[Rfam]
RNA sequence: AAUAAUCAUCAGGAGAUCCGCAAUGGCGGACACCAACCGAGAGACCAGAAUCCACGGUGGUACAGUAUGAGGGCUUUGCCAAAAUAUAAGAAGUUU
Numbered sequence: 001a002a003u004a005a006u007c008a009u010c011a012g013g014a015g016a017u018c019c020g021c022a023a024u025g026g027c028g029g030a031c032a033c034c035a036a037c038c039g040a041g042a043g044a045c046c047a048g049a050a051u052c053c054a055c056g057g058u059g060g061u062a063c064a065g066u067a068u069g070a071g072g073g074c075u076u077u078g079c080c081a082a083a084a085u086a087u088a089a090g091a092a093g094u095u096u
Stems, first nucleotide, its partner, number of pairs: 006070004015031001017030005032061003037057003041052002046090001072080003

About this RNA
Shown here is a 96-nucleotide RNA sequence from Cruoricaptor ignavus, a member of the family "SAM-I/IV (S-adenosyl methionine) riboswitch aptamer". Rfam links the family to the GO terms regulation of gene expression and S-adenosylmethionine metabolic process. Pairs were carried over by alignment from the consensus structure, which is taken from published work. On this family, see Weinberg et al., RNA 2008: "The aptamer core of SAM-IV riboswitches mimics the ligand-binding site of SAM-I riboswitches". The source organism's lineage runs through Bacteria, Bacteroidota, Flavobacteriia, Weeksellaceae and Cruoricaptor. It scores 54 bits against the family's covariance model.